The record is a 426-nucleotide sequence from Mycobacterium marinum, which matches "Bacterial RNase P class A" in Rfam.

[Rfam]
RNA sequence: CGAGUUGGCUGGGCGGCCGCGGCUCGGGUUGGGCUCGUGUUGUCACGAGUUCAGCGCCGAAUCGAGGAAAGUCCGGACUUCACAGAGCUGGGUGAUUGCUAACAGCAAUCCGAGGUGACUCGCGGGAAAGUGCCACAGAAAACAGACCGCCACCCUCGCGGUGGUAAGGGUGAAACGGUGCGGUAAGAGCGCACCAGCACCCCGGGUGACCGGGGUGGCUAGGCAAACCCCACCCGAAGCAAGGUCAAGAAGGCCGUACCGUAGGUGCGGCCGCGCAGGCGUUUGAGGGCUGCUCGCCCGAGUCUGCGGGUAGGCCGCUCGAGGUACCCGGCAACGGUGUGCCCAGAUGGAUGGUCGCCGCCGCGCCGCCGCUGGUUCAGCCGCGGCGGUGUGGAACAGAAUCCGGCUUACAGGCCAACUCGUCCG
Numbered sequence: 001c002g003a004g005u006u007g008g009c010u011g012g013g014c015g016g017c018c019g020c021g022g023c024u025c026g027g028g029u030u031g032g033g034c035u036c037g038u039g040u041u042g043u044c045a046c047g048a049g050u051u052c053a054g055c056g057c058c059g060a061a062u063c064g065a066g067g068a069a070a071g072u073c074c075g076g077a078c079u080u081c082a083c084a085g086a087g088c089u090g091g092g093u094g095a096u097u098g099c100u101a102a103c104a105g106c107a108a109u110c111c112g113a114g115g116u117g118a119c120u121c122g123c124g125g126g127a128a129a130g131u132g133c134c135a136c137a138g139a140a141a142a143c144a145g146a147c148c149g150c151c152a153c154c155c156u157c158g159c160g161g162u163g164g165u166a167a168g169g170g171u172g173a174a175a176c177g178g179u180g181c182g183g184u185a186a187g188a189g190c191g192c193a194c195c196a197g198c199a200c201c202c203c204g205g206g207u208g209a210c211c212g213g214g215g216u217g218g219c220u221a222g223g224c225a226a227a228c229c230c231c232a233c234c235c236g237a238a239g240c241a242a243g244g245u246c247a248a249g250a251a252g253g254c255c256g257u258a259c260c261g262u263a264g265g266u267g268c269g270g271c272c273g274c275g276c277a278g279g280c281g282u283u284u285g286a287g288g289g290c291u292g293c294u295c296g297c298c299c300g301a302g303u304c305u306g307c308g309g310g311u312a313g314g315c316c317g318c319u320c321g322a323g324g325u326a327c328c329c330g331g332c333a334a335c336g337g338u339g340u341g342c343c344c345a346g347a348u349g350g351a352u353g354g355u356c357g358c359c360g361c362c363g364c365g366c367c368g369c370c371g372c373u374g375g376u377u378c379a380g381c382c383g384c385g386g387c388g389g390u391g392u393g394g395a396a397c398a399g400a401a402u403c404c405g406g407c408u409u410a411c412a413g414g415c416c417a418a419c420u421c422g423u424c425c426g
Stems, first nucleotide, its partner, number of pairs: 001422010011411001012359007020064003024060004069409003073406005078239004085295004090235005095109005110124001111122004125230002130228002132224003147169002149165006177195006197219001198217008243316004253307002256304001287299004323342001328337003

It is annotated as a ribozyme. A search with the family's covariance model found it, with a score of 283 bits. NCBI's taxonomy places the organism under Bacteria, Actinomycetota, Actinomycetes, Mycobacteriaceae, Mycobacterium marinum. Pairs were carried over by alignment from the consensus structure, which is taken from published work. From the family's description: Ribonuclease P (RNase P) is a ubiquitous endoribonuclease, found in archaea, bacteria and eukarya as well as chloroplasts and mitochondria.